[Rfam]
RNA sequence: GAUGGUUUCUUGCUUUACCAAAGAGCAAGUGGUGCGGAUGGGUUACUCCCGCCCUGUUUCUUGCUUCAGGUAAAAGAGCAAGUGGCGAGCCUGCAA
Numbered sequence: 001g002a003u004g005g006u007u008u009c010u011u012g013c014u015u016u017a018c019c020a021a022a023g024a025g026c027a028a029g030u031g032g033u034g035c036g037g038a039u040g041g042g043u044u045a046c047u048c049c050c051g052c053c054c055u056g057u058u059u060c061u062u063g064c065u066u067c068a069g070g071u072a073a074a075a076g077a078g079c080a081a082g083u084g085g086c087g088a089g090c091c092u093g094c095a096a
Base pairs, nucleotide, nucleotide: 009029010028011027012026013025014024016023039051040050041049042048053070054069055068056067060082061081062080063079064078065077

Background
Shown here is a 96-nucleotide RNA sequence, a member of the family "wcaG RNA". The base pairs follow the family's consensus structure, which is taken from published work. The sequence is in the family's curated seed alignment.